[Rfam]
RNA: U1 spliceosomal RNA
RNA sequence: GUACUUCCCUGGCAGGUAAGGUGCCAUGAUCAUGAAGAUGGUUUUCCCAGAGUGAGGCUCAUCCACUGCACUCCAGUUAGGCUGACCCCUGCCAUUUCUCCAAAUGCAGGAAACUCAACUGCAUAAUUUGUGGUAGUGGGGGACUUUGUUCACGCUUCUCCUG
Numbered sequence: 001g002u003a004c005u006u007c008c009c010u011g012g013c014a015g016g017u018a019a020g021g022u023g024c025c026a027u028g029a030u031c032a033u034g035a036a037g038a039u040g041g042u043u044u045u046c047c048c049a050g051a052g053u054g055a056g057g058c059u060c061a062u063c064c065a066c067u068g069c070a071c072u073c074c075a076g077u078u079a080g081g082c083u084g085a086c087c088c089c090u091g092c093c094a095u096u097u098c099u100c101c102a103a104a105u106g107c108a109g110g111a112a113a114c115u116c117a118a119c120u121g122c123a124u125a126a127u128u129u130g131u132g133g134u135a136g137u138g139g140g141g142g143a144c145u146u147u148g149u150u151c152a153c154g155c156u157u158c159u160c161c162u163g
Stems, first nucleotide, its partner, number of pairs: 012122004016048001019045003023042005049090002052087001054086001056083003061078001063076001094115001095113001096111002099109001138162005147154002